[Rfam]
RNA sequence: GGAAACAAGUAGAAGCGCCUGCUUCUCACCUAGCCGACCGGUUGUUGGCGGGUUAUCGAUACGGCUGAGAUCUAAUGAUGAUUUCGUUCUUUCGAGAUGCGGGCGCCCGAGCGCCCGCAUCUUUUAGUUUUU
Numbered sequence: 001g002g003a004a005a006c007a008a009g010u011a012g013a014a015g016c017g018c019c020u021g022c023u024u025c026u027c028a029c030c031u032a033g034c035c036g037a038c039c040g041g042u043u044g045u046u047g048g049c050g051g052g053u054u055a056u057c058g059a060u061a062c063g064g065c066u067g068a069g070a071u072c073u074a075a076u077g078a079u080g081a082u083u084u085c086g087u088u089c090u091u092u093c094g095a096g097a098u099g100c101g102g103g104c105g106c107c108c109g110a111g112c113g114c115c116c117g118c119a120u121c122u123u124u125u126a127g128u129u130u131u132u
Stems, first nucleotide, its partner, number of pairs: 011026006028053003034048005098119009
Dot-bracket structure: ..........((((((....)))))).(((...(((((.....)))))..)))............................................(((((((((....))))))))).............

Rfam assigns this 132-nucleotide sequence from Paenibacillus sp. J31TS4 to the family "Ribosomal protein L20 leader". NCBI's taxonomy places the organism under Bacteria, Bacilli, Caryophanales, Paenibacillaceae, Paenibacillus. It scores 64 bits against the family's covariance model. Rfam links the family to the GO term regulation of gene expression. By type it is a cis-regulatory leader.